[Rfam]
Record summary
A member of the RNA family "TPP riboswitch aptamer (THI element)" from Lachnospiraceae bacterium XBB1006, 108 nucleotides long.
RNA sequence: CAAUUGAAAAAGGGGAGCUUGCGCAAGCAGGCUGAGAGGAAAGUGUGUCUUUCGACCCUUAAACCUGAUUUGGAUAAUGCCAACGUAGGAACAUAGUGCAUAAUUUAA
Numbered sequence: 001c002a003a004u005u006g007a008a009a010a011a012g013g014g015g016a017g018c019u020u021g022c023g024c025a026a027g028c029a030g031g032c033u034g035a036g037a038g039g040a041a042a043g044u045g046u047g048u049c050u051u052u053c054g055a056c057c058c059u060u061a062a063a064c065c066u067g068a069u070u071u072g073g074a075u076a077a078u079g080c081c082a083a084c085g086u087a088g089g090a091a092c093a094u095a096g097u098g099c100a101u102a103a104u105u106u107a108a
Stems, first nucleotide, its partner, number of pairs: 006097001009094001011059004017032005039053005064089004070083004
Dot-bracket structure: .....(..(.((((..(((((......)))))......(((((.....)))))..))))....((((..((((......))))..))))....)..)...........
Pairs were carried over by alignment from the consensus structure, which is taken from published work. Gene Ontology term of the family: thiamine pyrophosphate binding.